[Rfam]
RNA sequence: GUGGGCUACGGGGACAUGGCGCCCACCACCGUGGGGGGGCAGCUGGUGGGCUCCCUCUGCGCCAUCGCCGGCGUCCUCACCAUCUCCCUGCCCGUGCCCGUCAUCGUCUCCAA
Numbered sequence: 001g002u003g004g005g006c007u008a009c010g011g012g013g014a015c016a017u018g019g020c021g022c023c024c025a026c027c028a029c030c031g032u033g034g035g036g037g038g039g040c041a042g043c044u045g046g047u048g049g050g051c052u053c054c055c056u057c058u059g060c061g062c063c064a065u066c067g068c069c070g071g072c073g074u075c076c077u078c079a080c081c082a083u084c085u086c087c088c089u090g091c092c093c094g095u096g097c098c099c100g101u102c103a104u105c106g107u108c109u110c111c112a113a
Stems, first nucleotide, its partner, number of pairs: 002113001004111002008107004013102003018097001021095002037077003049063003